This 174-nucleotide RNA from Lachnellula arida belongs to the Rfam family "Small nucleolar RNA snR80". On this family, see Schattner et al., Nucleic Acids Res 2004: "Genome-wide searching for pseudouridylation guide snoRNAs: analysis of the Saccharomyces cerevisiae genome". Rfam links the family to the GO terms nucleolus and RNA processing. Lineage of the source: Eukaryota > Opisthokonta > Fungi > saccharomyceta > Lachnellula. The family is grouped with related families in Rfam's "SNORA28 clan". By type it is an H/ACA-box small nucleolar RNA.
RNA sequence: GCACUUGUCAAACACUCUGCUCUUUACCCCCAGUUCCUUGAGGACUGGCUCAUCUGUGGUAUUGGGCUAUUUUUGAAACAAGGAGAUUGAUUUUUGUCCGAUUACUCACCGCGAUAUCCUCUCUUCCUCUUGGUUGGGCGUGGAUAUAGUGGUCCAUAUCUUUCUGGUCAACAU
Numbered sequence: 001g002c003a004c005u006u007g008u009c010a011a012a013c014a015c016u017c018u019g020c021u022c023u024u025u026a027c028c029c030c031c032a033g034u035u036c037c038u039u040g041a042g043g044a045c046u047g048g049c050u051c052a053u054c055u056g057u058g059g060u061a062u063u064g065g066g067c068u069a070u071u072u073u074u075g076a077a078a079c080a081a082g083g084a085g086a087u088u089g090a091u092u093u094u095u096g097u098c099c100g101a102u103u104a105c106u107c108a109c110c111g112c113g114a115u116a117u118c119c120u121c122u123c124u125u126c127c128u129c130u131u132g133g134u135u136g137g138g139c140g141u142g143g144a145u146a147u148a149g150u151g152g153u154c155c156a157u158a159u160c161u162u163u164c165u166g167g168u169c170a171a172c173a174u
Stems, first nucleotide, its partner, number of pairs: 005081003019067004025061004030048007096169001098167002109152004114147006